[Rfam]
RNA sequence: CCUUUAGAUGAUGAAGAGAUGGUUUCAUAUAUUCUUAAUGGUUUAGACCCUGAGUUUAAUCCCUUAGUUUCUGCUAUUGUAACUAGGGUAGAACCCAUCUCAAUGUCUGAAUUAUACUCUCAGUUGUUAAGUUUUGAAA
Numbered sequence: 001c002c003u004u005u006a007g008a009u010g011a012u013g014a015a016g017a018g019a020u021g022g023u024u025u026c027a028u029a030u031a032u033u034c035u036u037a038a039u040g041g042u043u044u045a046g047a048c049c050c051u052g053a054g055u056u057u058a059a060u061c062c063c064u065u066a067g068u069u070u071c072u073g074c075u076a077u078u079g080u081a082a083c084u085a086g087g088g089u090a091g092a093a094c095c096c097a098u099c100u101c102a103a104u105g106u107c108u109g110a111a112u113u114a115u116a117c118u119c120u121c122a123g124u125u126g127u128u129a130a131g132u133u134u135u136g137a138a139a
Base pairs, nucleotide, nucleotide: 004138005137007135008134093108096105097104098103